Mason-Pfizer monkey virus packaging signal: a 287-nucleotide RNA sequence from Molossus molossus.
Nucleotides: 287
Stems, first nucleotide, its partner, number of pairs: 006031003012026003099139002102135002107132001111125004146165003150162001153160002172213001174210003221263005227257002231249005272287002275284003
Number, partner (000 for none) and nucleotide at each position: 001000u002000g003000g004000c005000g006031c007030c008029c009000a010000a011000c012026g013025u014024g015000g016000g017000g018000c019000u020000c021000c022000a023000g024014c025013a026012u027000g028000a029008g030007g031006g032000a033000u034000c035000c036000a037000g038000u039000g040000a041000a042000g043000g044000a045000c046000a047000c048000c049000a050000u051000u052000c053000a054000a055000g056000u057000g058000g059000c060000c061000g062000g063000c064000a065000g066000a067000a068000a069000g070000g071000a072000a073000a074000g075000c076000a077000a078000a079000a080000a081000a082000a083000a084000a085000g086000a087000a088000a089000g090000u091000a092000a093000a094000a095000g096000a097000a098000a099139a100138g101000a102135g103134g104000g105000a106000a107132u108000g109000a110000c111125g112124u113123g114122g115000g116000a117000a118000c119000c120000u121000g122114c123113u124112g125111c126000a127000u128000c129000u130000g131000c132107a133000c134103c135102c136000c137000g138100c139099u140000g141000g142000u143000a144000a145000g146165u147164g148163a149000a150162c151000g152000g153160c154159g155000a156000u157000u158000a159154u160153g161000g162150g163148u164147c165146a166000a167000g168000c169000a170000u171000u172213g173000a174210g175209c176208c177000a178000a179000g180000a181000u182000a183000a184000g185000a186000u187000g188000u189000u190000u191000g192000u193000u194000g195000a196000a197000g198000g199000a200000c201000u202000a203000a204000a205000a206000a207000a208176g209175g210174c211000u212000a213172u214000c215000c216000a217000g218000g219000c220000a221263u222262g223261a224260g225259g226000a227257g228256u229000a230000a231249a232248g233247g234246u235245g236000a237000a238000a239000a240000u241000u242000a243000a244000g245235c246234a247233u248232u249231u250000g251000u252000g253000u254000c255000a256228g257227u258000a259225u260224u261223u262222u263221g264000a265000u266000u267000a268000u269000a270000u271000u272287a273286a274000a275284g276283a277282a278000g279000u280000u281000u282277u283276u284275c285000c286273u287272u